[Rfam]
RNA sequence: GUCACCGCUGAACGAUGGCGACCGCGAGGUACUGGGGAGUACCGCUGACCGGUCACCACCGAGUCCGGACCACAGCCAAGGGAAUGUGUUCGGGCGUUUCAGUGAAGGAG
Numbered sequence: 001g002u003c004a005c006c007g008c009u010g011a012a013c014g015a016u017g018g019c020g021a022c023c024g025c026g027a028g029g030u031a032c033u034g035g036g037g038a039g040u041a042c043c044g045c046u047g048a049c050c051g052g053u054c055a056c057c058a059c060c061g062a063g064u065c066c067g068g069a070c071c072a073c074a075g076c077c078a079a080g081g082g083a084a085u086g087u088g089u090u091c092g093g094g095c096g097u098u099u100c101a102g103u104g105a106a107g108g109a110g
Base pairs, nucleotide, nucleotide: 006104007103008102009101010100011099012098013061014060016058018056020054021053022052023051024050028043029042031040032039033038063095064094065093066092067091068090071088072087073086074085
Actinomyces-1 RNA: a 110-nucleotide RNA. Rfam classes the family as a small RNA. The base pairs follow the family's consensus structure, which is taken from published work.